[Rfam]
RNA sequence: UGCAGGAGUAGAAGCGUUCACUGUGCGGUCCGACGAUGGGACUUGGCCAGCCGGAAAUUGCUCUGAAG
Number, nucleotide and partner (000 for none) at each position: 001u000002g000003c000004a000005g064006g063007a062008g061009u060010a059011g000012a000013a000014g000015c053016g000017u000018u055019c054020a000021c050022u049023g048024u000025g047026c046027g000028g000029u000030c000031c000032g000033a000034c000035g000036a000037u000038g000039g000040g000041a000042c000043u000044u000045g000046g026047c025048c023049a022050g021051c000052c000053g015054g019055a018056a000057a000058u000059u010060g009061c008062u007063c006064u005065g000066a000067a000068g000
Background
This 68-nucleotide RNA from Comamonas antarctica belongs to the Rfam family "Xanthine riboswitch aptamer (NMT1 RNA)". A reference for the family is Yu and Breaker (2020), "A bacterial riboswitch class senses xanthine and uric acid to regulate genes associated with purine oxidation", RNA. Gene Ontology term of the family: purine nucleobase binding. The family's consensus secondary structure is taken from published work. The match comes from Rfam's covariance-model search (40 bits). Taxonomically the source falls in Comamonas (Bacteria, Pseudomonadati, Betaproteobacteria, Comamonadaceae).